[Rfam]
RNA sequence: GGGUCGGGGGCCGCGCAUUGGGUCGCGUGGCAGGAAUGGGCCCUUCGCCUCUGCCGUCUCGAAAGGCUGCGCGCGCAGGGCCCUGCUGUGUGCGCC
Number, nucleotide and partner (000 for none) at each position: 001g043002g042003g041004u040005c039006g000007g000008g000009g000010g031011c030012c029013g028014c027015g026016c025017a000018u000019u000020g000021g000022g000023u000024c000025g016026c015027g014028u013029g012030g011031c010032a000033g000034g000035a000036a000037u000038g000039g005040g004041c003042c002043c001044u000045u000046c000047g000048c000049c000050u000051c000052u000053g000054c000055c000056g000057u000058c000059u000060c000061g000062a000063a000064a000065g000066g000067c000068u000069g095070c094071g093072c092073g000074c090075g089076c088077a087078g086079g000080g000081c000082c000083c000084u000085g000086c078087u077088g076089u075090g074091u000092g072093c071094g070095c069096c000
Overview:
The family of this 96-nucleotide sequence from Rhodobacteraceae bacterium CCMM004 is "Rhodo-rpoB RNA". Lineage of the source: Bacteria > Pseudomonadati > Alphaproteobacteria > Rhodobacterales > Paracoccaceae. By type it is a cis-regulatory element.